Rfam assigns this 90-nucleotide RNA from Sulfitobacter donghicola to the family "Rhodo-rpoB RNA". Taxonomically the source falls in Sulfitobacter donghicola (Bacteria, Pseudomonadota, Rhodobacterales, Roseobacteraceae).

RNA sequence: UGGUCGGGAGGGGUACGGUGGGACGUACUCCAGCAUAGACCGGACUUAGCCGCUCUUAUGGGUGUGCAUCGCGGCCCCGGCGAUGGCGCA
Numbered sequence: 001u002g003g004u005c006g007g008g009a010g011g012g013g014u015a016c017g018g019u020g021g022g023a024c025g026u027a028c029u030c031c032a033g034c035a036u037a038g039a040c041c042g043g044a045c046u047u048a049g050c051c052g053c054u055c056u057u058a059u060g061g062g063u064g065u066g067c068a069u070c071g072c073g074g075c076c077c078c079g080g081c082g083a084u085g086g087c088g089c090a
Base pairs, nucleotide, nucleotide: 001042002041003040004039005038010031011030012029013028014027015026016025017024063090064089065088066087067086068084069083070082071081072080
Dot-bracket structure: (((((....((((((((......))))))))......)))))....................((((((((((.......))))).)))))